[Rfam]
RNA sequence: CGAACUCACGCGGGAGAGUCCCGGUCCCGACCGGGCGCCGAAGGAGCAACCCCUCCCCGGAACCUCUCAGGCAGCCAGGACCGCGUGGUGAGA
Numbered sequence: 001c002g003a004a005c006u007c008a009c010g011c012g013g014g015a016g017a018g019u020c021c022c023g024g025u026c027c028c029g030a031c032c033g034g035g036c037g038c039c040g041a042a043g044g045a046g047c048a049a050c051c052c053c054u055c056c057c058c059g060g061a062a063c064c065u066c067u068c069a070g071g072c073a074g075c076c077a078g079g080a081c082c083g084c085g086u087g088g089u090g091a092g093a
Stems, first nucleotide, its partner, number of pairs: 006088008020035004037072003040068002044066003050060002
RNA: Glycine riboswitch aptamer
Organism: Pseudonocardia cypriaca